[Rfam]
The record is a 53-nucleotide sequence from Lactuca saligna, which matches "Plastid-atpF group II-D1 intron" in Rfam.
A reference for the family is Richter et al. (2023), "Retrograde signaling in plants: A critical review focusing on the GUN pathway and beyond", Plant Commun.
The family has 49 seed sequences and 1,372 matches in Rfam 15.1.
Rfam's curators write: Plastid atpF is a non-coding RNA (ncRNA) recognised in plastids. It has been reported in the intron group II-D1 region of ATP synthase (atpF) genes.
Pairs were carried over by alignment from the consensus structure, which was predicted with LocARNA.

RNA sequence: AAAGAUUUUAUCAAUACAGAACACUCGUAUCGAUAAAAUGAUUUGGACUACUU
Numbered sequence: 001a002a003a004g005a006u007u008u009u010a011u012c013a014a015u016a017c018a019g020a021a022c023a024c025u026c027g028u029a030u031c032g033a034u035a036a037a038a039u040g041a042u043u044u045g046g047a048c049u050a051c052u053u
Stems, first nucleotide, its partner, number of pairs: 011033002014030004